Small nucleolar RNA SNORA71: a 133-nucleotide RNA from Sus scrofa. The match comes from Rfam's covariance-model search (103 bits). Gene Ontology terms of the family: nucleolus and RNA processing. The members of this family belong to the H/ACA class of snoRNAs which bind a number of proteins (including dyskerin, Gar1p and Nop10p) to form snoRNP complexes. By type it is an H/ACA-box small nucleolar RNA.
RNA sequence: CCCAGCCUUUGAAAGUGGUCAUGGGCUGCCAGUGCCCCAGUCGUUGAUAGCACAGGGAGAGGACCUGCUGAAAGCGCUUCCCCGUGUUUGGAGGGCCUGUUGUGUCCCUUAUAAAUUCUGGAGCUUUCCCACA
Number, nucleotide and partner (000 for none) at each position: 001c057002c056003c055004a000005g053006c000007c000008u050009u049010u000011g000012a000013a000014a045015g044016u043017g042018g041019u040020c000021a000022u000023g037024g036025g035026c034027u000028g000029c000030c000031a000032g000033u000034g026035c025036c024037c023038c000039a000040g019041u018042c017043g016044u015045u014046g000047a000048u000049a009050g008051c000052a000053c005054a000055g003056g002057g001058a000059g000060a000061g000062g000063a000064c000065c000066u000067g130068c000069u000070g128071a127072a126073a125074g124075c123076g000077c000078u000079u000080c000081c000082c000083c000084g000085u000086g116087u115088u114089u113090g112091g110092a109093g108094g107095g106096c000097c000098u000099g000100u000101u000102g000103u000104g000105u000106c095107c094108c093109u092110u091111a000112u090113a089114a088115a087116u086117u000118c000119u000120g000121g000122a000123g075124c074125u073126u072127u071128c070129c000130c067131a000132c000133a000